The record is a 171-nucleotide RNA from Asaccharospora irregularis, which matches "Lysine riboswitch aptamer" in Rfam. The match comes from Rfam's covariance-model search (104 bits).
RNA sequence: ACCUAGGGUAGAGGUGCUAUAAUUAAUAGUAUCCAAUAGUAGCUGGCAAGCUUUGAUCAUUGGUGAAAGGAAUUGUAGCCGAAGAAAAUAUUUCCUGCAAGAAUAUCUUCUGGGGUUACACAUAAUAUGUGUAAUACUGUCGCUUUUUUUGAGUGGUGAGCUACAAGGUUU
Dot-bracket structure: .......((((....(((((((((........(((((.(.................).))))).......)))))))))...((((.((((((.......)))))).))))((.((((((((.....)))))))).)).(((((.......)))))....)))).......